[Rfam]
RNA sequence: UUCUGAUAAAGCCACACGGUCUUGGGUUAGGGCCGUACGGAAAGCCAUGGAACCACGAUGUAUGUGGGAAAGCCAGGUUGCCAGA
Number, nucleotide and partner (000 for none) at each position: 001u000002u000003c000004u000005g000006a000007u000008a000009a000010a000011g000012c040013c039014a000015c000016a000017c035018g034019g033020u032021c031022u030023u029024g028025g000026g000027u000028u024029a023030g022031g021032g020033c019034c018035g017036u000037a000038c000039g013040g012041a000042a000043a079044g078045c077046c076047a000048u075049g074050g073051a000052a000053c068054c066055a065056c064057g063058a000059u000060g000061u000062a000063u057064g056065u055066g054067g000068g053069a000070a000071a000072g000073c050074c049075a048076g046077g045078u044079u043080g000081c000082c000083a000084g000085a000